Annotation: Cyanobacteria heterocyst sRNA: a 57-nucleotide sequence from Pongo abelii. A reference for the family is Brenes-Alvarez et al. (2016), "Identification of Conserved and Potentially Regulatory Small RNAs in Heterocystous Cyanobacteria", Front Microbiol. By type it is a small RNA.
RNA sequence: GUGAUUUUGUUUUAUACAAAAUUUAUAAAAAGAUUUGCACAUUAUUGCAAAUCUUUU
Numbered sequence: 001g002u003g004a005u006u007u008u009g010u011u012u013u014a015u016a017c018a019a020a021a022u023u024u025a026u027a028a029a030a031a032g033a034u035u036u037g038c039a040c041a042u043u044a045u046u047g048c049a050a051a052u053c054u055u056u057u
Stems, first nucleotide, its partner, number of pairs: 002018002005016001007014001030055010